[Rfam]
This 125-nucleotide RNA from Pseudomonas panipatensis belongs to the Rfam family "Burkholderia RNA 11".
The family's consensus secondary structure was predicted with RNAfold.
About the family: Co-purified with Hfq, expression confirmed by Northern blot.
For this family Rfam cites "Experimental identification of small non-coding regulatory RNAs in the opportunistic human pathogen Burkholderia cenocepacia J2315" (Ramos et al., Genomics, 2013).
By type it is a small RNA.
It scores 60 bits against the family's covariance model.
RNA sequence: GCAUCCUGCGCCUGGGCCUGACGCAGCGACCGGCGGUGUCCCGCUCGCUGGUCGGUAACUCCUGGUUCUGGUUCCUCGGCGCGGUCUACCUGACGCAGAUCCCGACCUAUGCCAAGGAGCUGCUG
Numbered sequence: 001g002c003a004u005c006c007u008g009c010g011c012c013u014g015g016g017c018c019u020g021a022c023g024c025a026g027c028g029a030c031c032g033g034c035g036g037u038g039u040c041c042c043g044c045u046c047g048c049u050g051g052u053c054g055g056u057a058a059c060u061c062c063u064g065g066u067u068c069u070g071g072u073u074c075c076u077c078g079g080c081g082c083g084g085u086c087u088a089c090c091u092g093a094c095g096c097a098g099a100u101c102c103c104g105a106c107c108u109a110u111g112c113c114a115a116g117g118a119g120c121u122g123c124u125g
Stems, first nucleotide, its partner, number of pairs: 010052003014048001015045003020040005054124004060118004065113001070102002074098001077095002080092002083090002